[Rfam]
RNA sequence: UACGCGUUAAGGAUUGAAGCGGCAUCCUUUUGCUUUUUCAGCAAAAGAUAUAGCGGAAAGCCUGACCUACU
Numbered sequence: 001u002a003c004g005c006g007u008u009a010a011g012g013a014u015u016g017a018a019g020c021g022g023c024a025u026c027c028u029u030u031u032g033c034u035u036u037u038u039c040a041g042c043a044a045a046a047g048a049u050a051u052a053g054c055g056g057a058a059a060g061c062c063u064g065a066c067c068u069a070c071u
Stems, first nucleotide, its partner, number of pairs: 010063003014059002019054002024049003030044005